[Rfam]
RNA sequence: GAAUUUUCGGCAGCGUCACCUCCUCCCGGCUCUGUCGAAACGGAUGGCCUCUCUCCUCCCAGAAGGCCUUCCAUACCCAACGAAACCCACCGCACCUCCUCCCGCGGUGGGUUUUGUCG
Numbered sequence: 001g002a003a004u005u006u007u008c009g010g011c012a013g014c015g016u017c018a019c020c021u022c023c024u025c026c027c028g029g030c031u032c033u034g035u036c037g038a039a040a041c042g043g044a045u046g047g048c049c050u051c052u053c054u055c056c057u058c059c060c061a062g063a064a065g066g067c068c069u070u071c072c073a074u075a076c077c078c079a080a081c082g083a084a085a086c087c088c089a090c091c092g093c094a095c096c097u098c099c100u101c102c103c104g105c106g107g108u109g110g111g112u113u114u115u116g117u118c119g
Base pairs, nucleotide, nucleotide: 007038008037009036011034012033013032015030016029017028043071044070046068047067048066049065050064052062083114084113085112086111087110088109089108090107091106092105093104
A member of the RNA family "Alphaproteobacterial ar14" from Phyllobacterium sp. YR620, 119 nucleotides long. Smr14C2 was renamed NfeR1 (Nodule Formation Efficiency RNA) highly expressed in salt stress and during the symbiotic interaction on legume roots. It is annotated as a small RNA.